This 106-nucleotide RNA belongs to the Rfam family "SAM-I/IV (S-adenosyl methionine) riboswitch aptamer". Rfam's curators put it in the seed alignment.
RNA sequence: AAGAUACAUGAAGAGAGGACUGACGUCCCGCCAACCUGCUAGAUCCGGCAAGGUGGUUUCCUUUUUUAAAAAGGCAUGUGACCUUCGGGUAACAAUGGGGUCCAUG
Numbered sequence: 001a002a003g004a005u006a007c008a009u010g011a012a013g014a015g016a017g018g019a020c021u022g023a024c025g026u027c028c029c030g031c032c033a034a035c036c037u038g039c040u041a042g043a044u045c046c047g048g049c050a051a052g053g054u055g056g057u058u059u060c061c062u063u064u065u066u067u068a069a070a071a072a073g074g075c076a077u078g079u080g081a082c083c084u085u086c087g088g089g090u091a092a093c094a095a096u097g098g099g100g101u102c103c104a105u106g
Base pairs, nucleotide, nucleotide: 006079007078008077009076010075015029017028018027019026020025030057031056032055035053036052037051038049039048040047042101044099045098046097081090082089083088